RNA sequence: AAGAACGCGGGAGGCGUCGACGCACGGUCCCCCAACCUCGUCGUCACGAUCGUGCCGAGCCAUUGACGAGACCGACCCGCGGUCAC
Number, nucleotide and partner (000 for none) at each position: 001a000002a000003g084004a083005a000006c081007g080008c079009g078010g077011g076012a000013g061014g060015c059016g000017u000018c000019g000020a000021c000022g055023c054024a053025c052026g051027g050028u049029c048030c000031c000032c000033c000034a000035a000036c000037c000038u000039c000040g072041u069042c068043g067044u066045c065046a000047c000048g029049a028050u027051c026052g025053u024054g023055c022056c000057g000058a000059g015060c014061c013062a000063u000064u000065g045066a044067c043068g042069a041070g000071a000072c040073c000074g000075a000076c011077c010078c009079g008080c007081g006082g000083u004084c003085a000086c000
A member of the RNA family "c-di-GMP-II-GAG riboswitch aptamer", 86 nucleotides long. The sequence is in the family's curated seed alignment. A reference for the family is Weinberg et al. (2017), "Bioinformatic analysis of riboswitch structures uncovers variant classes with altered ligand specificity", Proc Natl Acad Sci U S A. Clan: c-di-GMP_II riboswitch clan.